The family of this 134-nucleotide RNA is "U4 spliceosomal RNA".

[Rfam]
RNA sequence: AUCCUUGCGGAAGGGGCAAUCGCGCUACCAGUGACGCCUAGCGGAGGUGCGCGGUUUGCUAGUUGAAAACUACUCCAAUUCCCGUCAAGUUUGAUCGUCAGGUCAUUCUUGCAAUUUUUAGGCGGGCUUCGGCC
Numbered sequence: 001a002u003c004c005u006u007g008c009g010g011a012a013g014g015g016g017c018a019a020u021c022g023c024g025c026u027a028c029c030a031g032u033g034a035c036g037c038c039u040a041g042c043g044g045a046g047g048u049g050c051g052c053g054g055u056u057u058g059c060u061a062g063u064u065g066a067a068a069a070c071u072a073c074u075c076c077a078a079u080u081c082c083c084g085u086c087a088a089g090u091u092u093g094a095u096c097g098u099c100a101g102g103u104c105a106u107u108c109u110u111g112c113a114a115u116u117u118u119u120a121g122g123c124g125g126g127c128u129u130c131g132g133c134c
Stems, first nucleotide, its partner, number of pairs: 021053005027048003035043003084112001086111004092105005125134003
Rfam's curators put it in the seed alignment. Its Rfam clan is "U4 clan". The family's consensus secondary structure is taken from published work. Rfam's curators write: U4 small nuclear RNA (U4 snRNA) is a component of the major U2-dependent spliceosome.